The record is a 129-nucleotide RNA from Cnephaeus nilssonii, which matches "Small nucleolar RNA SNORA11" in Rfam. Taxonomically the source falls in Cnephaeus (Eukaryota, Metazoa, Amniota, Laurasiatheria). U107 (SNORA11) is a member of the H/ACA class of snoRNAs that guide the sites of modification of uridines to pseudouridines. This snoRNA was identified by RT-PCR from blood cells and its expression confirmed by Northern blot analysis. There is no predicted target for this guide snRNA. Gene Ontology terms of the family: RNA processing and nucleolus. It scores 66 bits against the family's covariance model. For this family Rfam cites "A novel experimental approach for systematic identification of box H/ACA snoRNAs from eukaryotes" (Gu et al., Nucleic Acids Res, 2005).
Nucleotides: 129
Base pairs, nucleotide, nucleotide: 002056003055004054005053006052007051008050015043016042017041018040019039020038022035023034024033069122070121072119076114078112081110082109084103085102086101090098091097092096
Number, partner (000 for none) and nucleotide at each position: 001000u002056g003055g004054g005053u006052g007051u008050g009000a010000a011000g012000a013000g014000a015043g016042c017041a018040g019039a020038g021000c022035g023034c024033c025000u026000g027000a028000a029000g030000a031000a032000u033024g034023g035022c036000u037000c038020c039019u040018c041017u042016g043015u044000g045000a046000a047000u048000a049000a050008c051007a052006c053005a054004u055003c056002c057000a058000a059000c060000a061000g062000c063000a064000a065000c066000u067000u068000g069122g070121g071000c072119u073000u074000a075000u076114u077000c078112u079000u080000c081110a082109c083000a084103g085102g086101u087000g088000g089000c090098u091097g092096g093000a094000u095000a096092c097091u098090a099000u100000g101086a102085c103084u104000u105000u106000c107000c108000u109082g110081u111000g112078a113000c114076a115000u116000u117000a118000u119072g120000c121070c122069c123000u124000a125000u126000a127000c128000a129000u